RNA sequence: AUGUUAUCAAGAAAGGUGGAGGGACUAGACCCUUUGAAGCCUUAGCAACCUCCCAAUUAUUGGAAAAGGUGCUAAAUUCUACCCAAUAAAAUGGAUAGAUAACAA
Numbered sequence: 001a002u003g004u005u006a007u008c009a010a011g012a013a014a015g016g017u018g019g020a021g022g023g024a025c026u027a028g029a030c031c032c033u034u035u036g037a038a039g040c041c042u043u044a045g046c047a048a049c050c051u052c053c054c055a056a057u058u059a060u061u062g063g064a065a066a067a068g069g070u071g072c073u074a075a076a077u078u079c080u081a082c083c084c085a086a087u088a089a090a091a092u093g094g095a096u097a098g099a100u101a102a103c104a105a
Stems, first nucleotide, its partner, number of pairs: 002104007013043005021032003026081004044073004049069002051065001053063002077097001082094002
The record is a 105-nucleotide sequence from Polaribacter gangjinensis, which matches "SAM riboswitch aptamer (S box leader)" in Rfam. The base pairs follow the family's consensus structure, which is taken from published work. Gene Ontology term of the family: regulation of gene expression. About the family: The SAM riboswitch is found upstream of a number of genes which code for proteins involved in methionine or cysteine biosynthesis in Gram-positive bacteria.